Annotation:
A member of the RNA family "Small nucleolar RNA U2-30" from Cricetulus griseus, 69 nucleotides long. The literature on the family includes a 2004 paper in Curr Biol by Tycowski et al., "Guide RNAs with 5' Caps and Novel Box C/D snoRNA-like Domains for Modification of snRNAs in Metazoa". NCBI's taxonomy places the organism under Eukaryota, Euteleostomi, Theria, Glires, Cricetulus. The family's RNA type in Rfam is C/D-box small nucleolar RNA. The base pairs follow the family's consensus structure, which is taken from published work.
[Rfam]
RNA sequence: GAGUAAUGAUGAAAAAUUGUACUACUAAACUUUAAAAAUAUAUAGAAUUCUACACUUGACCUGAGUUCA
Numbered sequence: 001g002a003g004u005a006a007u008g009a010u011g012a013a014a015a016a017u018u019g020u021a022c023u024a025c026u027a028a029a030c031u032u033u034a035a036a037a038a039u040a041u042a043u044a045g046a047a048u049u050c051u052a053c054a055c056u057u058g059a060c061c062u063g064a065g066u067u068c069a
Stems, first nucleotide, its partner, number of pairs: 001068004013033003017029002